[Rfam]
RNA sequence: GCCUCCUGUGCCUACUGAGCUGAAACAGUUGAUUCCAGUGCACUGGCUCAGUUCAGCAGGAACAGGAGUC
Numbered sequence: 001g002c003c004u005c006c007u008g009u010g011c012c013u014a015c016u017g018a019g020c021u022g023a024a025a026c027a028g029u030u031g032a033u034u035c036c037a038g039u040g041c042a043c044u045g046g047c048u049c050a051g052u053u054c055a056g057c058a059g060g061a062a063c064a065g066g067a068g069u070c
Stems, first nucleotide, its partner, number of pairs: 003068004008063002011060003015056009026045004
Dot-bracket structure: ..((((.((.(((.(((((((((..((((............))))..))))))))).))).)).))))..
Rfam assigns this 70-nucleotide sequence from Rattus norvegicus to the family "mir-24 microRNA precursor family". It is one of the family's seed sequences. Gene Ontology terms of the family: miRNA-mediated post-transcriptional gene silencing and RISC complex. A reference for the family is Lagos-Quintana et al. (2001), "Identification of novel genes coding for small expressed RNAs", Science. Rfam describes the family as follows. This family represents the microRNA (miRNA) mir-24 family. miRNAs are transcribed as ~70nt precursors (modelled here) and subsequently processed by the Dicer enzyme to give a ~22nt product. In this case the mature sequence comes from the 3' arm of the precursor. The extents of the hairpin precursors are not generally known and are estimated based on hairpin prediction. NCBI's taxonomy places the organism under Eukaryota, Teleostomi, Eutheria, Rodentia, Rattus.